[Rfam]
RNA: MIR1862 microRNA precursor family
RNA sequence: UACUCCAUCCGUCCCAAAAAAAGGGAACCUAGUACUAGGAUGUGUCAUAUCCUAGUACUAGGUUGCCUUUUUCUGGGACGGAGGGAGUAC
Numbered sequence: 001u002a003c004u005c006c007a008u009c010c011g012u013c014c015c016a017a018a019a020a021a022a023g024g025g026a027a028c029c030u031a032g033u034a035c036u037a038g039g040a041u042g043u044g045u046c047a048u049a050u051c052c053u054a055g056u057a058c059u060a061g062g063u064u065g066c067c068u069u070u071u072u073c074u075g076g077g078a079c080g081g082a083g084g085g086a087g088u089a090c
Base pairs, nucleotide, nucleotide: 001089002088003087004086005085006084008082009081010080011079012078013077014076015075016074018072019071020070021069022068023067024066026064027063028062029061030060031059032058033057034056035055038052039051040050